[Rfam]
Background: The record is a 127-nucleotide RNA sequence from Aotus nancymaae, which matches "Small nucleolar RNA SNORA25" in Rfam. Gene Ontology terms of the family: RNA processing and nucleolus. The source organism's lineage runs through Eukaryota, Opisthokonta, Eutheria, Boreoeutheria and Aotus. The family has 30 seed sequences and 1,129 matches in Rfam 15.1.
RNA sequence: AGAUCACUUCAAAGCGGGCUUGUGGAGCUGCAAAACCAAAAGCUUUAAUGUAUGACCAAAGAUUGAUAUUCUCUGUAGGAUGCCAUAGUCACUCAGUAGUGCUACAUCUUCUUAAGCAGAUAUAAGA
Numbered sequence: 001a002g003a004u005c006a007c008u009u010c011a012a013a014g015c016g017g018g019c020u021u022g023u024g025g026a027g028c029u030g031c032a033a034a035a036c037c038a039a040a041a042g043c044u045u046u047a048a049u050g051u052a053u054g055a056c057c058a059a060a061g062a063u064u065g066a067u068a069u070u071c072u073c074u075g076u077a078g079g080a081u082g083c084c085a086u087a088g089u090c091a092c093u094c095a096g097u098a099g100u101g102c103u104a105c106a107u108c109u110u111c112u113u114a115a116g117c118a119g120a121u122a123u124a125a126g127a
Stems, first nucleotide, its partner, number of pairs: 002057001004055003014046001016045006023039001027036001070120003074116001077113004086104003090101004